[Rfam]
Rfam assigns this 82-nucleotide sequence from Dioscorea zingiberensis to the family "Small nucleolar RNA SNORD34". Its family is annotated with RNA processing and nucleolus in the Gene Ontology. NCBI's taxonomy places the organism under Eukaryota, Euphyllophyta, Mesangiospermae, Liliopsida, Dioscorea. By type it is a C/D-box small nucleolar RNA. The match comes from Rfam's covariance-model search (53 bits). Clan: SNORD34 clan. For this family Rfam cites "Purified box C/D snoRNPs are able to reproduce site-specific 2'-O-methylation of target RNA in vitro" (Galardi et al., Mol Cell Biol, 2002).
RNA sequence: ACAGGCCUGGGAUGAUCAGCAUAUUGCCUACAUUGCUUGAUUCAUUUAUAUGAUAAUAAUCAGCCAAUUUUCUGAGGCCUUU
Numbered sequence: 001a002c003a004g005g006c007c008u009g010g011g012a013u014g015a016u017c018a019g020c021a022u023a024u025u026g027c028c029u030a031c032a033u034u035g036c037u038u039g040a041u042u043c044a045u046u047u048a049u050a051u052g053a054u055a056a057u058a059a060u061c062a063g064c065c066a067a068u069u070u071u072c073u074g075a076g077g078c079c080u081u082u
Stems, first nucleotide, its partner, number of pairs: 001082001004079004
Dot-bracket structure: (..((((....................................................................))))..)